[Rfam]
RNA sequence: AGCCUAUGAUGGUGUAAGAGUAGUGGACAGAAGGGAUUUCUGAAAAUUUUCAUUCUGAGGCU
Numbered sequence: 001a002g003c004c005u006a007u008g009a010u011g012g013u014g015u016a017a018g019a020g021u022a023g024u025g026g027a028c029a030g031a032a033g034g035g036a037u038u039u040c041u042g043a044a045a046a047u048u049u050u051c052a053u054u055c056u057g058a059g060g061c062u
Base pairs, nucleotide, nucleotide: 001062002061003060004059
This 62-nucleotide RNA from Spermophilus dauricus belongs to the Rfam family "Small nucleolar RNA SNORD75". Rfam classes the family as a C/D-box small nucleolar RNA. The family's consensus secondary structure was predicted with RNAalifold. The source organism's lineage runs through Eukaryota, Gnathostomata, Eutheria, Xerinae and Spermophilus. For this family Rfam cites "Purified box C/D snoRNPs are able to reproduce site-specific 2'-O-methylation of target RNA in vitro" (Galardi et al., Mol Cell Biol, 2002).